[Rfam]
Nucleotides: 062
Stems, first nucleotide, its partner, number of pairs: 001060005009049005022044003030037002
Number, partner (000 for none) and nucleotide at each position: 001060c002059u003058u004057u005056c006000u007000g008000a009049g010048u011047a012046u013045c014000a015000u016000a017000g018000c019000a020000a021000a022044c023043g024042a025000a026000a027000g028000u029000a030037g031036c032000u033000u034000u035000g036031g037030c038000a039000a040000a041000a042024u043023c044022g045013g046012a047011u048010a049009c050000g051000u052000u053000g054000a055000u056005g057004a058003a059002a060001g061000a062000a

A member of the RNA family "RAGATH-18 RNA", 62 nucleotides long. It is annotated as a small RNA. The base pairs follow the family's consensus structure, which is taken from published work. Rfam's curators put it in the seed alignment.